[Rfam]
RNA sequence: UCUGCCAAGGAGCGUUGCAGCGCGAGCGUGAGACCCACGGCUUCGCGUCAGGCUUGGUGAAGAAUUCAACGACGCUCACCCCUG
Dot-bracket structure: ..((((((............((((((...............))))))......)))))).........................
Numbered sequence: 001u002c003u004g005c006c007a008a009g010g011a012g013c014g015u016u017g018c019a020g021c022g023c024g025a026g027c028g029u030g031a032g033a034c035c036c037a038c039g040g041c042u043u044c045g046c047g048u049c050a051g052g053c054u055u056g057g058u059g060a061a062g063a064a065u066u067c068a069a070c071g072a073c074g075c076u077c078a079c080c081c082c083u084g
Stems, first nucleotide, its partner, number of pairs: 003059006021047006
Rfam assigns this 84-nucleotide RNA sequence from Ideonella dechloratans to the family "SAH (S-adenosyl-L-homocysteine) riboswitch aptamer".